[Rfam]
RNA: Small nucleolar RNA SNORA38
Organism: Pipistrellus kuhlii
RNA sequence: CCCUCCUACAAAGGCGAGUCUGUGGUUUCCCUGUCUUUGGAUGUAAUUGGAGACAAAGAAAUGCGCACUUGGAGAAGUCUGGAACCUCAAGACUUCCUGCAGGCUCAGGAUCAACCAUCCCACAUAG
Number, nucleotide and partner (000 for none) at each position: 001c000002c000003c052004u051005c050006c049007u000008a000009c000010a000011a000012a000013g000014g000015c043016g000017a000018g042019u041020c040021u039022g000023u000024g031025g030026u000027u000028u000029c000030c025031c024032u000033g000034u000035c000036u000037u000038u000039g021040g020041a019042u018043g015044u000045a000046a000047u000048u000049g006050g005051a004052g003053a000054c000055a000056a000057a000058g000059a000060a000061a000062u000063g000064c000065g120066c000067a118068c000069u117070u000071g000072g000073a000074g000075a000076a000077g000078u000079c000080u000081g000082g000083a000084a000085c000086c000087u000088c000089a000090a105091g104092a000093c102094u101095u000096c000097c000098u000099g000100c000101a094102g093103g000104c091105u090106c000107a000108g000109g000110a000111u000112c000113a000114a000115c000116c000117a069118u067119c000120c065121c000122a000123c000124a000125u000126a000127g000